RNA sequence: GGUGUGGUCGGUUACUGGCAGGGUUUAAAUUCUGCUGGUCCCUGUGGCAGGGGCGCGCCAUCAAUCACAACGGUGCCUGCGGGCAUGAAUGGAGA
Numbered sequence: 001g002g003u004g005u006g007g008u009c010g011g012u013u014a015c016u017g018g019c020a021g022g023g024u025u026u027a028a029a030u031u032c033u034g035c036u037g038g039u040c041c042c043u044g045u046g047g048c049a050g051g052g053g054c055g056c057g058c059c060a061u062c063a064a065u066c067a068c069a070a071c072g073g074u075g076c077c078u079g080c081g082g083g084c085a086u087g088a089a090u091g092g093a094g095a
Stems, first nucleotide, its partner, number of pairs: 001059006014039010073086005
RNA: KDPG-aldolase RNA
Organism: Rahnella aquatilis